[Rfam]
RNA sequence: GGCGUAAAGGGCGUGUAGGCGGUUCACUAAGUCUGGUUUUAAAGACUGCGGCUCAACCGCAGGGAUGGACUGGAGACUGGUGGACUGGACCUCUGGAGAGAGAACUGGAAUUCCUGGUGUAGCGGUGGAAUGCGUAGAUACCAGGAGGAACACCAAUGGCGAAGGCAGGUUCUUGGACAGAAGGUGACGCUGAGGCGCGAAAGUGUGGGGAGCGAACCGGAUUAGAUACCCGGGUAGUCCACACCCUAAACGAUGUACGUUGGCUCAUGGCAGGAUGCUGUCAUGGGCGAAGCUAACGCGAUAAACGUACCGCCUGGGAAGUACGGCCGCAAGGUUGAAACUCAAAGAAAU
Numbered sequence: 001g002g003c004g005u006a007a008a009g010g011g012c013g014u015g016u017a018g019g020c021g022g023u024u025c026a027c028u029a030a031g032u033c034u035g036g037u038u039u040u041a042a043a044g045a046c047u048g049c050g051g052c053u054c055a056a057c058c059g060c061a062g063g064g065a066u067g068g069a070c071u072g073g074a075g076a077c078u079g080g081u082g083g084a085c086u087g088g089a090c091c092u093c094u095g096g097a098g099a100g101a102g103a104a105c106u107g108g109a110a111u112u113c114c115u116g117g118u119g120u121a122g123c124g125g126u127g128g129a130a131u132g133c134g135u136a137g138a139u140a141c142c143a144g145g146a147g148g149a150a151c152a153c154c155a156a157u158g159g160c161g162a163a164g165g166c167a168g169g170u171u172c173u174u175g176g177a178c179a180g181a182a183g184g185u186g187a188c189g190c191u192g193a194g195g196c197g198c199g200a201a202a203g204u205g206u207g208g209g210g211a212g213c214g215a216a217c218c219g220g221a222u223u224a225g226a227u228a229c230c231c232g233g234g235u236a237g238u239c240c241a242c243a244c245c246c247u248a249a250a251c252g253a254u255g256u257a258c259g260u261u262g263g264c265u266c267a268u269g270g271c272a273g274g275a276u277g278c279u280g281u282c283a284u285g286g287g288c289g290a291a292g293c294u295a296a297c298g299c300g301a302u303a304a305a306c307g308u309a310c311c312g313c314c315u316g317g318g319a320a321g322u323a324c325g326g327c328c329g330c331a332a333g334g335u336u337g338a339a340a341c342u343c344a345a346a347g348a349a350a351u
Base pairs, nucleotide, nucleotide: 001314002313003312009311011198012197013196014195016192018191019190020189022085023084024083025082026081027080028079030078031077032074033073034072035071036070037069038068039067046062047061048060049059050058051057089185090184091183092181093180094179095178100174101173102172103171104170105169106168107151111147112146113145114144115143116142117141118140122133123132124131159166160165203244204243205242206241207240208239212238213237217233218232219231220230255310256309257308258307259306260305263288264287265286266285267284268283269282270281271280272279273278292299293298316343317342318341325336326335327334328333
This 351-nucleotide part of an RNA from Deinococcus koreensis belongs to the Rfam family "Bacterial small subunit ribosomal RNA".
The match comes from Rfam's covariance-model search (1506 bits).